Eukaryotic large subunit ribosomal RNA: a 494-nucleotide part of an RNA from Puccinia triticina. NCBI's taxonomy places the organism under Eukaryota, Basidiomycota, Pucciniomycetes, Pucciniaceae, Puccinia triticina. The base pairs follow the family's consensus structure, which is taken from published work.
RNA sequence: UAGAAAUAAUGUAGAUAAGGGAAGUCGGCAAAAUAGAUCCGUAACUUUGGGAAAAGGAUUGGCUCAUAGGGCAGAGCUUGUUGGGCCCUUGAUAGAUCUUUAGGGACCUGACUAGGACUACUUCUGGGUAAAACUUGAGGCGGACCUGGAUGGGACCUUUUAGUAAUGUCUUGGGUAGCUUUAAUUAACGUUAUUGCAUCUGGCAAGCAUUUAACUGUCAACUAUGAACUGGUACGGACAAGGGGAAUCUGACUGUCUAAUUAAAACAUAGCAUUGUGAUGGCCAGAAGUGGUGUUGACACAAUGUGAUUUCUGCCCAGUGCUCUGAAUGUCAAAGUGAAGAAAUUCAACCAAGCGCGGGUAAACGGCGGGAGUAACUAUGACUCUCUUAAGGUAGCCAAAUGCCUCGUCAUCUAAUUAGUGACGCGCAUGAAUGGAUUCCCACUGUCCCUAUCUACUAUCUAGCGAAACCACAUCUAGCGAAACCACAGCCAA
Numbered sequence: 001u002a003g004a005a006a007u008a009a010u011g012u013a014g015a016u017a018a019g020g021g022a023a024g025u026c027g028g029c030a031a032a033a034u035a036g037a038u039c040c041g042u043a044a045c046u047u048u049g050g051g052a053a054a055a056g057g058a059u060u061g062g063c064u065c066a067u068a069g070g071g072c073a074g075a076g077c078u079u080g081u082u083g084g085g086c087c088c089u090u091g092a093u094a095g096a097u098c099u100u101u102a103g104g105g106a107c108c109u110g111a112c113u114a115g116g117a118c119u120a121c122u123u124c125u126g127g128g129u130a131a132a133a134c135u136u137g138a139g140g141c142g143g144a145c146c147u148g149g150a151u152g153g154g155a156c157c158u159u160u161u162a163g164u165a166a167u168g169u170c171u172u173g174g175g176u177a178g179c180u181u182u183a184a185u186u187a188a189c190g191u192u193a194u195u196g197c198a199u200c201u202g203g204c205a206a207g208c209a210u211u212u213a214a215c216u217g218u219c220a221a222c223u224a225u226g227a228a229c230u231g232g233u234a235c236g237g238a239c240a241a242g243g244g245g246a247a248u249c250u251g252a253c254u255g256u257c258u259a260a261u262u263a264a265a266a267c268a269u270a271g272c273a274u275u276g277u278g279a280u281g282g283c284c285a286g287a288a289g290u291g292g293u294g295u296u297g298a299c300a301c302a303a304u305g306u307g308a309u310u311u312c313u314g315c316c317c318a319g320u321g322c323u324c325u326g327a328a329u330g331u332c333a334a335a336g337u338g339a340a341g342a343a344a345u346u347c348a349a350c351c352a353a354g355c356g357c358g359g360g361u362a363a364a365c366g367g368c369g370g371g372a373g374u375a376a377c378u379a380u381g382a383c384u385c386u387c388u389u390a391a392g393g394u395a396g397c398c399a400a401a402u403g404c405c406u407c408g409u410c411a412u413c414u415a416a417u418u419a420g421u422g423a424c425g426c427g428c429a430u431g432a433a434u435g436g437a438u439u440c441c442c443a444c445u446g447u448c449c450c451u452a453u454c455u456a457c458u459a460u461c462u463a464g465c466g467a468a469a470c471c472a473c474a475u476c477u478a479g480c481g482a483a484a485c486c487a488c489a490g491c492c493a494a
Stems, first nucleotide, its partner, number of pairs: 001463004011457007019449003036060005045050001061230002064227006070219005076208009086175003091170003099163002102160001103158003107154004112149005118143002121140004126135002231235001243442009254268003271306008282293004310429001312427001314368003319365002321361004326357001329356003337348004369387006388392001408424005476490002